The family of this 79-nucleotide RNA from Ophiophagus hannah is "mir-223 microRNA precursor family".

[Rfam]
RNA sequence: CUGUGUGUAUUUGACAAGCUGAGUUCGACACUCAGUGUGGCAGUGUCAGUUUGUCAAAUAUACAAAGUGCGGCAUUUGU
Number, nucleotide and partner (000 for none) at each position: 001c067002u066003g000004u000005g063006u000007g061008u060009a059010u058011u057012u056013g055014a054015c053016a052017a051018g050019c049020u048021g000022a000023g000024u000025u000026c000027g047028a046029c045030a044031c000032u000033c043034a000035g000036u000037g000038u000039g000040g000041c000042a000043g033044u030045g029046u028047c027048a020049g019050u018051u017052u016053g015054u014055c013056a012057a011058a010059u009060a008061u007062a000063c005064a000065a000066a002067g001068u000069g000070c000071g000072g000073c000074a000075u000076u000077u000078g000079u000